[Rfam]
RNA sequence: CCACGCAGCCGGGGAGAUAGCGGUGCCCUGUAUCUGCAAUCCGCUCCAGCAGAGGUGAUGCCUUGCCUCGGAUCGGUCAUUGCGGAGCUGCCUUAUGUAAGUGGCGUUGACGUUUGGGUCUUACGCAACGGGAACCUGUGAACCGUGUCAGGGCAGGAAUGCAGCAGCACUAAGCAGGAACUCUCGUGUGCCGUAAGGCAGCCUGGACCGAGUUAACUGCAUGAGUAACGUCCGUGAUGCCGGUACAAAGCAAGGCGCGUGG
Numbered sequence: 001c002c003a004c005g006c007a008g009c010c011g012g013g014g015a016g017a018u019a020g021c022g023g024u025g026c027c028c029u030g031u032a033u034c035u036g037c038a039a040u041c042c043g044c045u046c047c048a049g050c051a052g053a054g055g056u057g058a059u060g061c062c063u064u065g066c067c068u069c070g071g072a073u074c075g076g077u078c079a080u081u082g083c084g085g086a087g088c089u090g091c092c093u094u095a096u097g098u099a100a101g102u103g104g105c106g107u108u109g110a111c112g113u114u115u116g117g118g119u120c121u122u123a124c125g126c127a128a129c130g131g132g133a134a135c136c137u138g139u140g141a142a143c144c145g146u147g148u149c150a151g152g153g154c155a156g157g158a159a160u161g162c163a164g165c166a167g168c169a170c171u172a173a174g175c176a177g178g179a180a181c182u183c184u185c186g187u188g189u190g191c192c193g194u195a196a197g198g199c200a201g202c203c204u205g206g207a208c209c210g211a212g213u214u215a216a217c218u219g220c221a222u223g224a225g226u227a228a229c230g231u232c233c234g235u236g237a238u239g240c241c242g243g244u245a246c247a248a249a250g251c252a253a254g255g256c257g258c259g260u261g262g
Base pairs, nucleotide, nucleotide: 001262002261003260004259005258006257008056009055010054011029012028013027014026016024018022033053034052035051036050037049062254063253064252065251066250068248070246072244073243074242075241078239079238080237081236082235083234084233085232086231089227090226093224094223095222096221097220098219101217102216103214104213105212112208113207114206115205116204117203118202119201120197121196122195123194124193125192126188127187129186130185131184132183133182135178136177137176138175139174145170146169147168148167153162154161155160

A member of the RNA family "Bacterial large signal recognition particle RNA" from Clostridium sp. CAG:7, 262 nucleotides long. Rfam's curators write: The signal recognition particle (SRP) is a universally conserved ribonucleoprotein involved in the co-translational targeting of proteins to membranes. Its Rfam clan is "SRP clan". The source organism's lineage runs through Bacteria, Bacillota, Clostridia, Clostridiaceae and Clostridium.